[Rfam]
RNA sequence: ACAUAAGUAGGAUGAUCCUUACCUGUUCUUUCUUUUUUGAGGUGGGCUUGGAACUUGAUGAUUGGAGUUUCCCAUAAUACAUGAUAAACAUCUCUGUGUAAUCAAGACUGGCAAUGCCCUGAUUGCUCCUAUCUUCU
Numbered sequence: 001a002c003a004u005a006a007g008u009a010g011g012a013u014g015a016u017c018c019u020u021a022c023c024u025g026u027u028c029u030u031u032c033u034u035u036u037u038u039g040a041g042g043u044g045g046g047c048u049u050g051g052a053a054c055u056u057g058a059u060g061a062u063u064g065g066a067g068u069u070u071c072c073c074a075u076a077a078u079a080c081a082u083g084a085u086a087a088a089c090a091u092c093u094c095u096g097u098g099u100a101a102u103c104a105a106g107a108c109u110g111g112c113a114a115u116g117c118c119c120u121g122a123u124u125g126c127u128c129c130u131a132u133c134u135u136c137u
Stems, first nucleotide, its partner, number of pairs: 023046002027042004077093001079091001082087001098126007106118001
U8 small nucleolar RNA: a 137-nucleotide RNA sequence from Canis lupus. The family's RNA type in Rfam is C/D-box small nucleolar RNA. The family's consensus secondary structure is taken from published work. It scores 67 bits against the family's covariance model. Gene Ontology terms of the family: RNA processing and nucleolus. A reference for the family is Peculis (1997), "The sequence of the 5' end of the U8 small nucleolar RNA is critical for 5.8S and 28S rRNA maturation", Mol Cell Biol.